[Rfam]
RNA sequence: GCUGCGUGAUGACGUUCCGGUGACUGAACACUCCGUAGUUGGUCCUUGGGGUGUGUGUGAUGUUACUGCACUGUUUCAAGACGGGACUGAUGGCAGC
Number, nucleotide and partner (000 for none) at each position: 001g094002c093003u092004g091005c000006g000007u000008g000009a000010u000011g000012a000013c000014g000015u000016u000017c000018c000019g000020g000021u000022g000023a000024c000025u000026g000027a000028a000029c000030a000031c000032u000033c000034c000035g000036u000037a000038g000039u000040u000041g000042g000043u000044c000045c000046u000047u000048g000049g000050g000051g000052u000053g000054u000055g000056u000057g000058u000059g000060a000061u000062g000063u000064u000065a000066c000067u000068g000069c000070a000071c000072u000073g000074u000075u000076u000077c000078a000079a000080g000081a000082c000083g000084g000085g000086a000087c000088u000089g000090a000091u004092g003093g002094c001095a000096g000097c000